[Rfam]
RNA: MIR2275 microRNA precursor family
Organism: Tetracentron sinense
RNA sequence: GUCUUGAAUGUAAGGAUUGGAGGGAAUCAAACCAAUUGUGGUAAACAGUUUGGUUUGGUUUCCUCCAAUGUCUUACCUUCAAUGG
Numbered sequence: 001g002u003c004u005u006g007a008a009u010g011u012a013a014g015g016a017u018u019g020g021a022g023g024g025a026a027u028c029a030a031a032c033c034a035a036u037u038g039u040g041g042u043a044a045a046c047a048g049u050u051u052g053g054u055u056u057g058g059u060u061u062c063c064u065c066c067a068a069u070g071u072c073u074u075a076c077c078u079u080c081a082a083u084g085g
Stems, first nucleotide, its partner, number of pairs: 004082005011075004016069006023062008032053004